[Rfam]
RNA sequence: UGGGUGAUAUGCACAUAAUGGGUUUCCGUUUCCGUGUAGCAAUGGUUACUGGAACGCCGCCUCGACUGUU
Numbered sequence: 001u002g003g004g005u006g007a008u009a010u011g012c013a014c015a016u017a018a019u020g021g022g023u024u025u026c027c028g029u030u031u032c033c034g035u036g037u038a039g040c041a042a043u044g045g046u047u048a049c050u051g052g053a054a055c056g057c058c059g060c061c062u063c064g065a066c067u068g069u070u
Base pairs, nucleotide, nucleotide: 004063006061010059011058027056028055029054030053032052033051034050036049037048038047039046040045
RNA: Yersinia sRNA 201
Organism: Yersinia ruckeri